[Rfam]
Nucleotides: 063
Base pairs, nucleotide, nucleotide: 034060035059037056038055039054040053041052042051043050044049
Number, partner (000 for none) and nucleotide at each position: 001000a002000a003000g004000u005000g006000u007000u008000a009000c010000a011000u012000c013000u014000c015000u016000u017000u018000u019000a020000g021000a022000a023000u024000u025000u026000g027000u028000c029000u030000a031000g032000c033000a034060g035059g036000c037056u038055u039054u040053c041052c042051g043050g044049u045000u046000c047000g048000u049044a050043c051042c052041g053040g054039a055038a056037a057000g058000a059035c060034c061000c062000u063000a
The family of this 63-nucleotide RNA sequence from Bison bison is "U7 small nuclear RNA".
The match comes from Rfam's covariance-model search (71 bits).
The source organism's lineage runs through Eukaryota, Chordata, Dipnotetrapodomorpha, Bovidae and Bison bison.